[Rfam]
RNA: Small nucleolar RNA snoR14
RNA sequence: GCGAGGUGACGAUAAAAAUUCAUUAGUCUGUCAAUCCACUGAAUCACAAUUGUGUUGUUACCGUGAAUCCCGACAGGUUCUGAUCGC
Numbered sequence: 001g002c003g004a005g006g007u008g009a010c011g012a013u014a015a016a017a018a019u020u021c022a023u024u025a026g027u028c029u030g031u032c033a034a035u036c037c038a039c040u041g042a043a044u045c046a047c048a049a050u051u052g053u054g055u056u057g058u059u060a061c062c063g064u065g066a067a068u069c070c071c072g073a074c075a076g077g078u079u080c081u082g083a084u085c086g087c
Base pairs, nucleotide, nucleotide: 001087002086003085004084